[Rfam]
RNA: permuted transfer-messenger RNA
RNA sequence: GACGAUAAAUGUGCUGCGGAAUAGGCGAUACGGACCCGGGGGCGGUACCCGGCGGCUCCACCAUCUUAUAAGUUUAGGGUCAUCUGACCUUCUGCAAUAUGGGGCCGAAAUAGGAUCGACGUGCGUAAUAAAGGCGGUUGCUUUCGUUCGGCAUGGUACCCACCGUUAUCGGGCUAUACUUGAUAAACGCUAAUGAUAAUGAACCCGAAAGGGUUGAACUUCGUCUCGUUGCUUAA
Numbered sequence: 001g002a003c004g005a006u007a008a009a010u011g012u013g014c015u016g017c018g019g020a021a022u023a024g025g026c027g028a029u030a031c032g033g034a035c036c037c038g039g040g041g042g043c044g045g046u047a048c049c050c051g052g053c054g055g056c057u058c059c060a061c062c063a064u065c066u067u068a069u070a071a072g073u074u075u076a077g078g079g080u081c082a083u084c085u086g087a088c089c090u091u092c093u094g095c096a097a098u099a100u101g102g103g104g105c106c107g108a109a110a111u112a113g114g115a116u117c118g119a120c121g122u123g124c125g126u127a128a129u130a131a132a133g134g135c136g137g138u139u140g141c142u143u144u145c146g147u148u149c150g151g152c153a154u155g156g157u158a159c160c161c162a163c164c165g166u167u168a169u170c171g172g173g174c175u176a177u178a179c180u181u182g183a184u185a186a187a188c189g190c191u192a193a194u195g196a197u198a199a200u201g202a203a204c205c206c207g208a209a210a211g212g213g214u215u216g217a218a219c220u221u222c223g224u225c226u227c228g229u230u231g232c233u234u235a236a
Base pairs, nucleotide, nucleotide: 001148002147003146004145005144014137015136016135017134026125027124030122031121032120036052037051038050039049040048053107054106055105056104057103058102059101149165150164151163